[Rfam]
RNA sequence: GGUACCUGACGGGAACAGGCGUAUAGUACGAGAGGAACUCCGCCUGGGUGCCACUGGUGUACCGGUUGUCUGAAAAGGCAGUUGCCGGGCAGCCACGCACCACGGGGUAAGAGCUGAACGCAUCUAAGCUCGAAACCCACCUGGAAAAGAGGUACCACCGAGGACACUCGUAGAAGACGAGUUAGAUAGACUCGGGGUGUACGCGUCAAGGCAACGAGACGUUCAGCCCGCGAGCACUAACAGUCCGAG
Numbered sequence: 001g002g003u004a005c006c007u008g009a010c011g012g013g014a015a016c017a018g019g020c021g022u023a024u025a026g027u028a029c030g031a032g033a034g035g036a037a038c039u040c041c042g043c044c045u046g047g048g049u050g051c052c053a054c055u056g057g058u059g060u061a062c063c064g065g066u067u068g069u070c071u072g073a074a075a076a077g078g079c080a081g082u083u084g085c086c087g088g089g090c091a092g093c094c095a096c097g098c099a100c101c102a103c104g105g106g107g108u109a110a111g112a113g114c115u116g117a118a119c120g121c122a123u124c125u126a127a128g129c130u131c132g133a134a135a136c137c138c139a140c141c142u143g144g145a146a147a148a149g150a151g152g153u154a155c156c157a158c159c160g161a162g163g164a165c166a167c168u169c170g171u172a173g174a175a176g177a178c179g180a181g182u183u184a185g186a187u188a189g190a191c192u193c194g195g196g197g198u199g200u201a202c203g204c205g206u207c208a209a210g211g212c213a214a215c216g217a218g219a220c221g222u223u224c225a226g227c228c229c230g231c232g233a234g235c236a237c238u239a240a241c242a243g244u245c246c247g248a249g
Stems, first nucleotide, its partner, number of pairs: 001156007010143004016046006023039001047101005055095003062088005067080005104138003111131005162246004166182005187239003191234004195229003203222005210215001